RNA sequence: UGCACCGCGAAGGCCGCGACGCCCGCUUCAAACAGGAUGUCCCCAUCCAUAUUCGCAGGCGGGCAAGGUCUGGGCUUCAUCCCCCUAGACCGAUGUCCCGUCGUCAAGACGGUGCGACGUACCAGAAACAUAUCUAGUCACGCUAAUCCCGGAGAUGCCUUGAGGCGAAUGGAGUGCGGUUCGGUUUGGGAUACGUCGCGGGGAUCGGGCGGCUCGUUUCCAUUUAGUAACGAAAGACACUCUGUCGUGUCUCUGUAUGCGCUCUCUGAGGGCUGGUGGAAGGUCGAGCUUUGUGUCCUAGACUAACAACAGGUGGAGCUGUGUCGGGGAUGAGAUCAAUUGGACGUCUUGAGAUCGUUCAGACAUGGCUCCCGAUGAAAACCCAGGGCGCAUUGAUGCCUUCCACGAGAGACUUUUGAGGGUGGUAUGCUGAAUGGGAUAGUGCCGCCCUUCAGUGCACUUCGCGGCUCGCGGGCAUUCGUGUAUCGCGAAACUCGACUCAGACUACUCUCGCGCUGCA
Numbered sequence: 001u002g003c004a005c006c007g008c009g010a011a012g013g014c015c016g017c018g019a020c021g022c023c024c025g026c027u028u029c030a031a032a033c034a035g036g037a038u039g040u041c042c043c044c045a046u047c048c049a050u051a052u053u054c055g056c057a058g059g060c061g062g063g064c065a066a067g068g069u070c071u072g073g074g075c076u077u078c079a080u081c082c083c084c085c086u087a088g089a090c091c092g093a094u095g096u097c098c099c100g101u102c103g104u105c106a107a108g109a110c111g112g113u114g115c116g117a118c119g120u121a122c123c124a125g126a127a128a129c130a131u132a133u134c135u136a137g138u139c140a141c142g143c144u145a146a147u148c149c150c151g152g153a154g155a156u157g158c159c160u161u162g163a164g165g166c167g168a169a170u171g172g173a174g175u176g177c178g179g180u181u182c183g184g185u186u187u188g189g190g191a192u193a194c195g196u197c198g199c200g201g202g203g204a205u206c207g208g209g210c211g212g213c214u215c216g217u218u219u220c221c222a223u224u225u226a227g228u229a230a231c232g233a234a235a236g237a238c239a240c241u242c243u244g245u246c247g248u249g250u251c252u253c254u255g256u257a258u259g260c261g262c263u264c265u266c267u268g269a270g271g272g273c274u275g276g277u278g279g280a281a282g283g284u285c286g287a288g289c290u291u292u293g294u295g296u297c298c299u300a301g302a303c304u305a306a307c308a309a310c311a312g313g314u315g316g317a318g319c320u321g322u323g324u325c326g327g328g329g330a331u332g333a334g335a336u337c338a339a340u341u342g343g344a345c346g347u348c349u350u351g352a353g354a355u356c357g358u359u360c361a362g363a364c365a366u367g368g369c370u371c372c373c374g375a376u377g378a379a380a381a382c383c384c385a386g387g388g389c390g391c392a393u394u395g396a397u398g399c400c401u402u403c404c405a406c407g408a409g410a411g412a413c414u415u416u417u418g419a420g421g422g423u424g425g426u427a428u429g430c431u432g433a434a435u436g437g438g439a440u441a442g443u444g445c446c447g448c449c450c451u452u453c454a455g456u457g458c459a460c461u462u463c464g465c466g467g468c469u470c471g472c473g474g475g476c477a478u479u480c481g482u483g484u485a486u487c488g489c490g491a492a493a494c495u496c497g498a499c500u501c502a503g504a505c506u507a508c509u510c511u512c513g514c515g516c517u518g519c520a
Base pairs, nucleotide, nucleotide: 001520002519003518004517008513009512010511013468014467015466016465017464018463019462021060022059023058025056035048036047037046038045039044070503071502072501073500074499080202081201082200089096090095098112099111100110101109102108114199115198116197117196118195119194120193134184135183469491470490471489472488473487474486
Nuclear RNase P: a 520-nucleotide RNA sequence from Grifola frondosa. The family's RNA type in Rfam is ribozyme. Pairs were carried over by alignment from the consensus structure, which is taken from published work. The source organism's lineage runs through Eukaryota, Fungi, Basidiomycota, Grifolaceae and Grifola. The literature on the family includes a 1998 paper in Annu Rev Biochem by Frank and Pace, "Ribonuclease P: unity and diversity in a tRNA processing ribozyme".